[Rfam]
RNA sequence: AUCUUCUCAUUGAGCUCCUUUCUGUCAGCUGGUGGCAGAUUAUGGAUUCGCACGAGAAGAAGAGAGAGUUCACAGAACUAGCAUUUACCUUCUGUUUUUUACAGAGGUGUAUAUUUGGCUAUUGUGUGAGACAUUC
Number, nucleotide and partner (000 for none) at each position: 001a000002u000003c059004u058005u057006c056007u055008c054009a000010u000011u000012g000013a000014g051015c050016u046017c045018c044019u000020u000021u000022c038023u037024g036025u035026c034027a000028g000029c000030u000031g000032g000033u000034g026035g025036c024037a023038g022039a000040u000041u000042a000043u000044g018045g017046a016047u000048u000049c000050g015051c014052a000053c000054g008055a007056g006057a005058a004059g003060a000061a000062g000063a000064g000065a000066g000067a000068g000069u000070u129071c128072a127073c126074a125075g000076a000077a000078c000079u000080a000081g000082c000083a000084u000085u000086u000087a000088c000089c107090u106091u105092c104093u103094g102095u000096u000097u000098u000099u000100u000101a000102c094103a093104g092105a091106g090107g089108u000109g000110u000111a000112u000113a000114u000115u000116u000117g000118g000119c000120u000121a000122u000123u000124g000125u074126g073127u072128g071129a070130g000131a000132c000133a000134u000135u000136c000
Record summary
Shown here is a 136-nucleotide RNA sequence from Neotoma lepida, a member of the family "Small nucleolar RNA SNORA75". The base pairs follow the family's consensus structure, which was predicted with PFOLD. The family has 6 seed sequences and 414 matches in Rfam 15.1. U23 belongs to the H/ACA class of snoRNAs. snoRNAs bind a number of proteins (including dyskerin, Gar1p and Nop10p in the case of the H/ACA class) to form snoRNP complexes.